Plant signal recognition particle RNA: a 304-nucleotide sequence from Nicotiana attenuata.
Pairs were carried over by alignment from the consensus structure, which is taken from published work.
Clan: SRP clan.
RNA sequence: GCCGAGCUCAGUAAUGUGGGCUUGUAACCCAAAUGGGGGCAACAAUGUGGUGGAAUGUUGGGCUGCUUUAUUUGGUAGGGCUUGGUGGGCUAAAUUCUGGCCUGCCCUAUCCAAGCUCAGAGUUGGGUCACGUGGCCCAAGCGAAAGCAUGGGUUGCUGGACUCCUAAAGUGGGGCGGACUGCGUGAGGCUGGUUUCACAGAGCAACGAAUAGUUCCCGCUCUGUCCAGUGGAAGGAUAAUGGGCUGGUGUCCUCUAGGCCCAAUAAAUGCCAGAUGGGUUGUUCCAAUUAAACCAUCACUUUU
Numbered sequence: 001g002c003c004g005a006g007c008u009c010a011g012u013a014a015u016g017u018g019g020g021c022u023u024g025u026a027a028c029c030c031a032a033a034u035g036g037g038g039g040c041a042a043c044a045a046u047g048u049g050g051u052g053g054a055a056u057g058u059u060g061g062g063c064u065g066c067u068u069u070a071u072u073u074g075g076u077a078g079g080g081c082u083u084g085g086u087g088g089g090c091u092a093a094a095u096u097c098u099g100g101c102c103u104g105c106c107c108u109a110u111c112c113a114a115g116c117u118c119a120g121a122g123u124u125g126g127g128u129c130a131c132g133u134g135g136c137c138c139a140a141g142c143g144a145a146a147g148c149a150u151g152g153g154u155u156g157c158u159g160g161a162c163u164c165c166u167a168a169a170g171u172g173g174g175g176c177g178g179a180c181u182g183c184g185u186g187a188g189g190c191u192g193g194u195u196u197c198a199c200a201g202a203g204c205a206a207c208g209a210a211u212a213g214u215u216c217c218c219g220c221u222c223u224g225u226c227c228a229g230u231g232g233a234a235g236g237a238u239a240a241u242g243g244g245c246u247g248g249u250g251u252c253c254u255c256u257a258g259g260c261c262c263a264a265u266a267a268a269u270g271c272c273a274g275a276u277g278g279g280u281u282g283u284u285c286c287a288a289u290u291a292a293a294c295c296a297u298c299a300c301u302u303u304u
Base pairs, nucleotide, nucleotide: 001040002039003038004023005022006021007020008019009018010017028037029036030035044303045302047300048299049298050297051296052295053294056291057290058288059287060286061284062283063282065280066279068278069277070276071275072274073273074272075271076270077269078262079261080260081259082258083257084256085255087253088252089251091250092249097248098247099246100245101244102243103242104241106236107235110233111232112231113230115227118224119223120222121221122220123219125164126163127162128161129160132157133156134155135154136153137152138151139150141148142147165170172217173216174215175214176213181210183208184207185206190201191200192199